[Rfam]
RNA sequence: AGCAAGAUACUGCGUAGAGGCUUUCGAUACGCCGGGGCGCCAUGGCGUCAGACCUGCUGAAAUGGUGCGGGGAAUCGUUACGGAGCCGCUGUCCCGCGGCCCCACAACGCGCAGGU
Number, nucleotide and partner (000 for none) at each position: 001a000002g000003c000004a000005a000006g000007a116008u115009a000010c114011u113012g112013c111014g110015u109016a000017g000018a000019g000020g000021c000022u000023u000024u000025c077026g076027a075028u074029a048030c047031g046032c045033c044034g043035g000036g000037g000038c000039g000040c000041c000042a000043u034044g033045g032046c031047g030048u029049c000050a000051g000052a000053c071054c070055u069056g068057c067058u000059g000060a000061a000062a000063u000064g000065g000066u000067g057068c056069g055070g054071g053072g000073a000074a028075u027076c026077g025078u000079u000080a000081c000082g103083g102084a000085g000086c099087c098088g097089c096090u000091g000092u000093c000094c000095c000096g089097c088098g087099g086100c000101c000102c083103c082104a000105c000106a000107a000108c000109g015110c014111g013112c012113a011114g010115g008116u007